[Rfam]
RNA sequence: CAACUCCCUCCCGGUAAAAGCUAACCACUGGCCGGAAGCGAGUCUUGCAUGGACAACGGUAACGUUAUUCGUGAAGCGUAGACAGCAGGUGCUAAAGCCGCGGGAUUGAGUCUCGAUAUCAUGUUCACGUUGGAGGCUUCAUUUUGUUUGGGAAUGGGGUCAGUACAGUACAUAUCGUAAUGGUAAGAGAUGUAUUGUCCGACGGGGAUCUAUGGCCG
Numbered sequence: 001c002a003a004c005u006c007c008c009u010c011c012c013g014g015u016a017a018a019a020g021c022u023a024a025c026c027a028c029u030g031g032c033c034g035g036a037a038g039c040g041a042g043u044c045u046u047g048c049a050u051g052g053a054c055a056a057c058g059g060u061a062a063c064g065u066u067a068u069u070c071g072u073g074a075a076g077c078g079u080a081g082a083c084a085g086c087a088g089g090u091g092c093u094a095a096a097g098c099c100g101c102g103g104g105a106u107u108g109a110g111u112c113u114c115g116a117u118a119u120c121a122u123g124u125u126c127a128c129g130u131u132g133g134a135g136g137c138u139u140c141a142u143u144u145u146g147u148u149u150g151g152g153a154a155u156g157g158g159g160u161c162a163g164u165a166c167a168g169u170a171c172a173u174a175u176c177g178u179a180a181u182g183g184u185a186a187g188a189g190a191u192g193u194a195u196u197g198u199c200c201g202a203c204g205g206g207g208a209u210c211u212a213u214g215g216c217c218g
Base pairs, nucleotide, nucleotide: 011035012034013033014032019029020028022186024184025183038086039085042083043082044081045080046078047077048073049072050071051070052069053068055066056065057064058063107214108210110209111208112207113206114205129203130202131201132200133199134198135161136160137159140156141155142154143153144152145151166197167196168195169194170193171192172191173190175188176187